[Rfam]
RNA sequence: AGAACGGGCCUUUCAGGCAUCCUCUCCUAAACCUUUCACGGCCGGUCCCCAGGGAUCGGCCUUUUUUUUGGCGUGC
Numbered sequence: 001a002g003a004a005c006g007g008g009c010c011u012u013u014c015a016g017g018c019a020u021c022c023u024c025u026c027c028u029a030a031a032c033c034u035u036u037c038a039c040g041g042c043c044g045g046u047c048c049c050c051a052g053g054g055a056u057c058g059g060c061c062u063u064u065u066u067u068u069u070g071g072c073g074u075g076c
Stems, first nucleotide, its partner, number of pairs: 008018004040061009
Rfam assigns this 76-nucleotide sequence from Sphingomonas sp. AX6 to the family "Makes More Granules Regulator RNA (mmgR)". The match comes from Rfam's covariance-model search (47 bits). SuhB later renamed mmgR (makes more granules regulator) was a putative non-coding RNA found multiple times in the Agrobacterium tumefaciens genome and related alpha-proteobacteria.